[Rfam]
RNA sequence: UCGGAUGAAAAUAGCCUUAGACGUCCUGAUUUCGUCAGGAGGCCGAAGAAGCAAAGCGGGGUAGUGGCAGUUACCCUGUGGAAACUGACAGGCAAAAGGAAGGUUAUUGGACGAAACUUUGGAGAGAUCACUUUAAUGUGGCGCCUACGAGGAGAUAACCAACUGGCAAAGGGACAGAGGA
Numbered sequence: 001u002c003g004g005a006u007g008a009a010a011a012u013a014g015c016c017u018u019a020g021a022c023g024u025c026c027u028g029a030u031u032u033c034g035u036c037a038g039g040a041g042g043c044c045g046a047a048g049a050a051g052c053a054a055a056g057c058g059g060g061g062u063a064g065u066g067g068c069a070g071u072u073a074c075c076c077u078g079u080g081g082a083a084a085c086u087g088a089c090a091g092g093c094a095a096a097a098g099g100a101a102g103g104u105u106a107u108u109g110g111a112c113g114a115a116a117c118u119u120u121g122g123a124g125a126g127a128u129c130a131c132u133u134u135a136a137u138g139u140g141g142c143g144c145c146u147a148c149g150a151g152g153a154g155a156u157a158a159c160c161a162a163c164u165g166g167c168a169a170a171g172g173g174a175c176a177g178a179g180g181a
Base pairs, nucleotide, nucleotide: 001114002113003112010108011107012106013105014104015103016102017101022041024040025039026038027037028036029035030034042093043092044091048089050086051085056079057078058077059076060075061074062073063072064071065070117179118178119177120176121175126142128141129140130139131138143167144166145165149163151160152159
RNA: glycine-GGAnGA riboswitch aptamer
Organism: Hominibacterium faecale